[Rfam]
RNA sequence: AAUGAGGGACUAAGAGCUGAGGAAUUUGGCUUCUAUGCUUUCCCCAGUGUCAUUGCCCUCAAAGA
Dot-bracket structure: ..((((((.......((((.(((.................))).)))).......))))))....
RNA: Trypanosomatid snoRNA TB3Cs2H1
Organism: Trypanosoma theileri